[Rfam]
RNA sequence: CUGCGUGACGAAGCGGGCAAGACAGGCAACAAUAGCGCCUGAGCUCCAAGUCACUCGUCCUGAUGCCGGUUCGCCGGCAUUUUUUA
Numbered sequence: 001c002u003g004c005g006u007g008a009c010g011a012a013g014c015g016g017g018c019a020a021g022a023c024a025g026g027c028a029a030c031a032a033u034a035g036c037g038c039c040u041g042a043g044c045u046c047c048a049a050g051u052c053a054c055u056c057g058u059c060c061u062g063a064u065g066c067c068g069g070u071u072c073g074c075c076g077g078c079a080u081u082u083u084u085u086a
Base pairs, nucleotide, nucleotide: 015059016039017038018037062081063080064079065078066077067076068075069074
sroD RNA: an 86-nucleotide sequence from Beauveria bassiana. Taxonomically the source falls in Beauveria bassiana (Eukaryota, Fungi, saccharomyceta, Hypocreomycetidae). It scores 54 bits against the family's covariance model. On this family, see Vogel et al., Nucleic Acids Res 2003: "RNomics in Escherichia coli detects new sRNA species and indicates parallel transcriptional output in bacteria". About the family: This family consists of a number of bacterial sroD RNA genes of around 90 bases in length. sroD is found in several Enterobacterial species but its function is unknown.